[Rfam]
RNA sequence: UUUAACCACUAGGGGUGUCCUUCAUAAGGGCUGAGAUAAAAGUGUGACUUUUAGACCCUCAUAACUUGAACAGGUUCAGACCUGCGUAGGGAAGUGGAGCGGUAUUUGU
Numbered sequence: 001u002u003u004a005a006c007c008a009c010u011a012g013g014g015g016u017g018u019c020c021u022u023c024a025u026a027a028g029g030g031c032u033g034a035g036a037u038a039a040a041a042g043u044g045u046g047a048c049u050u051u052u053a054g055a056c057c058c059u060c061a062u063a064a065c066u067u068g069a070a071c072a073g074g075u076u077c078a079g080a081c082c083u084g085c086g087u088a089g090g091g092a093a094g095u096g097g098a099g100c101g102g103u104a105u106u107u108g109u
Base pairs, nucleotide, nucleotide: 006097007096008095009094010093011059012058013057014056016053017031018030019029020028021027038052039051040050041049042048065090066089067088068087071084072083073082074081
The record is a 109-nucleotide RNA sequence from Bacillus subtilis, which matches "TPP riboswitch aptamer (THI element)" in Rfam. Lineage of the source: Bacteria > Bacillati > Bacillota > Bacilli > Bacillus subtilis subsp. subtilis. Rfam's curators put it in the seed alignment.